[Rfam]
RNA sequence: ACAAACUUGUCGGAGUGCAUUAGGGCGAUAUUGCCCUGAAGCUGAGACCGCAUUGCGGGAUCCGUUGAACCUGAUCAGGCUAAUACCUGCGAAGGGAACAAGUAGUGAUUAUGU
Numbered sequence: 001a002c003a004a005a006c007u008u009g010u011c012g013g014a015g016u017g018c019a020u021u022a023g024g025g026c027g028a029u030a031u032u033g034c035c036c037u038g039a040a041g042c043u044g045a046g047a048c049c050g051c052a053u054u055g056c057g058g059g060a061u062c063c064g065u066u067g068a069a070c071c072u073g074a075u076c077a078g079g080c081u082a083a084u085a086c087c088u089g090c091g092a093a094g095g096g097a098a099c100a101a102g103u104a105g106u107g108a109u110u111a112u113g114u
Stems, first nucleotide, its partner, number of pairs: 006102005011064004016058001017042002020039007049057003070095003076089004
RNA: TPP riboswitch aptamer (THI element)